[Rfam]
RNA: U8 small nucleolar RNA
Organism: Piliocolobus tephrosceles
RNA sequence: AAAUUAGUGGGAUAAUCCUUACCUGUUCCUCGUUUUGGAGGACAGAUAGAACAUAAUAACUGGAGUUUGCAUGAUCCAUGAUUAAUGUCUCUGUGUAAUCAGGACUUGCAAACUCAUAUCUGAU
Number, nucleotide and partner (000 for none) at each position: 001a000002a000003a000004u000005u000006a000007g000008u000009g000010g000011g000012a000013u000014a000015a000016u000017c000018c000019u000020u000021a000022c000023c045024u044025g043026u000027u042028c041029c040030u039031c038032g000033u000034u000035u000036u000037g000038g031039a030040g029041g028042a027043c025044a024045g023046a000047u000048a000049g000050a000051a000052c000053a000054u000055a000056a000057u000058a000059a000060c000061u000062g000063g000064a000065g000066u000067u000068u000069g000070c000071a000072u000073g091074a090075u000076c000077c087078a086079u084080g000081a000082u000083u000084a079085a000086u078087g077088u000089c000090u074091c073092u000093g000094u000095g113096u112097a000098a000099u000100c108101a107102g106103g000104a000105c000106u102107u101108g100109c000110a000111a000112a096113c095114u000115c000116a000117u000118a000119u000120c000121u000122g000123a000124u000